Shown here is a 52-nucleotide RNA from Aestuariibacter salexigens, a member of the family "L31-Gammaproteobacteria ribosomal protein leader". The family's RNA type in Rfam is cis-regulatory leader. The organism belongs to Aestuariibacter salexigens, within Bacteria.

RNA sequence: CGUAUGGUGGCCAGCUUCGGGCUGGUUAGCGAUGCGGCCUUGAUGAUGAGGU
Numbered sequence: 001c002g003u004a005u006g007g008u009g010g011c012c013a014g015c016u017u018c019g020g021g022c023u024g025g026u027u028a029g030c031g032a033u034g035c036g037g038c039c040u041u042g043a044u045g046a047u048g049a050g051g052u
Stems, first nucleotide, its partner, number of pairs: 001036005007030002011025006